[Rfam]
RNA sequence: UUCAACGAUGAUGAUCCUACAGACCUGUAAUGAGUUUUGCGGAAAUGAUCGCAGAAUCAUAGAACAUCUAAGGGACUGAGUUGUG
Numbered sequence: 001u002u003c004a005a006c007g008a009u010g011a012u013g014a015u016c017c018u019a020c021a022g023a024c025c026u027g028u029a030a031u032g033a034g035u036u037u038u039g040c041g042g043a044a045a046u047g048a049u050c051g052c053a054g055a056a057u058c059a060u061a062g063a064a065c066a067u068c069u070a071a072g073g074g075a076c077u078g079a080g081u082u083g084u085g
Stems, first nucleotide, its partner, number of pairs: 003083004

About this RNA
Rfam assigns this 85-nucleotide RNA from Vanilla planifolia to the family "Small nucleolar RNA SNORD25". The family is grouped with related families in Rfam's "SNORD25 clan". Lineage of the source: Eukaryota > Streptophyta > Mesangiospermae > Orchidaceae > Vanilla. Rfam classes the family as a C/D-box small nucleolar RNA. A search with the family's covariance model found it, with a score of 74 bits. Pairs were carried over by alignment from the consensus structure, which was predicted with PFOLD.